[Rfam]
RNA sequence: CAACGCAAUAUGUGCGUUUUAUGCGGAUACCAUCCGCGUAGUGGCUAAACCCACAUCGGACUUCUAUAAGAGAAACAACAUG
Numbered sequence: 001c002a003a004c005g006c007a008a009u010a011u012g013u014g015c016g017u018u019u020u021a022u023g024c025g026g027a028u029a030c031c032a033u034c035c036g037c038g039u040a041g042u043g044g045c046u047a048a049a050c051c052c053a054c055a056u057c058g059g060a061c062u063u064c065u066a067u068a069a070g071a072g073a074a075a076c077a078a079c080a081u082g
Stems, first nucleotide, its partner, number of pairs: 002018005020040007041054004
RNA: freshwater-2 RNA